[Rfam]
RNA sequence: CUUAUCAAUUGAAACUUACCUCAUAUAAUUUUGAGAAUACGGCUCAAGCGUUUCUACCCGUUACCGUAAAUAACGGACUAUGAGGGAAGAUGAAAUAUUG
Numbered sequence: 001c002u003u004a005u006c007a008a009u010u011g012a013a014a015c016u017u018a019c020c021u022c023a024u025a026u027a028a029u030u031u032u033g034a035g036a037a038u039a040c041g042g043c044u045c046a047a048g049c050g051u052u053u054c055u056a057c058c059c060g061u062u063a064c065c066g067u068a069a070a071u072a073a074c075g076g077a078c079u080a081u082g083a084g085g086g087a088a089g090a091u092g093a094a095a096u097a098u099u100g
Base pairs, nucleotide, nucleotide: 019085020084021083022082023081024080025079030048031047032046033045034044035043058076059075060074061073062072063071
This 100-nucleotide sequence from Natronobacillus azotifigens belongs to the Rfam family "Purine riboswitch aptamer".
The family's consensus secondary structure is taken from published work.
Lineage of the source: Bacteria > Bacillota > Bacilli > Bacillaceae > Natronobacillus.